Rfam assigns this 103-nucleotide sequence from Clostridium botulinum to the family "SAM riboswitch aptamer (S box leader)". Lineage of the source: Bacteria > Eubacteriales > Clostridiaceae > Clostridium > Clostridium botulinum A.
RNA sequence: UUCUUAUCAAGAGCGGUGGAGGGACUGGCCCUAUGAAACCCGGCAACCAGUAUAUAUUUUAUACAUGGUGCUAAAUCCUGCAGAUUUAACUGAAAGAUGAGAA
Numbered sequence: 001u002u003c004u005u006a007u008c009a010a011g012a013g014c015g016g017u018g019g020a021g022g023g024a025c026u027g028g029c030c031c032u033a034u035g036a037a038a039c040c041c042g043g044c045a046a047c048c049a050g051u052a053u054a055u056a057u058u059u060u061a062u063a064c065a066u067g068g069u070g071c072u073a074a075a076u077c078c079u080g081c082a083g084a085u086u087u088a089a090c091u092g093a094a095a096g097a098u099g100a101g102a103a
Stems, first nucleotide, its partner, number of pairs: 001103008013041001015040003021031003025080001027078002042072004047068002050064004076095001081092003